The record is a 75-nucleotide RNA sequence from Myotis lucifugus, which matches "mir-9223 microRNA precursor family" in Rfam. Its family is annotated with RISC complex and miRNA-mediated post-transcriptional gene silencing in the Gene Ontology. A search with the family's covariance model found it, with a score of 77 bits. Taxonomically the source falls in Myotis (Eukaryota, Gnathostomata, Theria, Eutheria). The base pairs follow the family's consensus structure, which was predicted with RNAalifold.
[Rfam]
RNA sequence: GGCAGUUCUCUUGUGAUGCAUCCUAGAAUCAGGAUCCCUCCUCUCUGGUUCUGGGUGCAUCACCCGAGAACCUCA
Numbered sequence: 001g002g003c004a005g006u007u008c009u010c011u012u013g014u015g016a017u018g019c020a021u022c023c024u025a026g027a028a029u030c031a032g033g034a035u036c037c038c039u040c041c042u043c044u045c046u047g048g049u050u051c052u053g054g055g056u057g058c059a060u061c062a063c064c065c066g067a068g069a070a071c072c073u074c075a
Stems, first nucleotide, its partner, number of pairs: 002074001005071006013063005019057005025052009